[Rfam]
RNA sequence: AACCGAACCCUCUCACUCGGAUCGUUUGGCACGUACCUGCCAAUGAAAGGAUUAUAUU
Numbered sequence: 001a002a003c004c005g006a007a008c009c010c011u012c013u014c015a016c017u018c019g020g021a022u023c024g025u026u027u028g029g030c031a032c033g034u035a036c037c038u039g040c041c042a043a044u045g046a047a048a049g050g051a052u053u054a055u056a057u058u
Base pairs, nucleotide, nucleotide: 009050010049011048013046014045015044026043027042028041029040030039031038
RNA: msiK RNA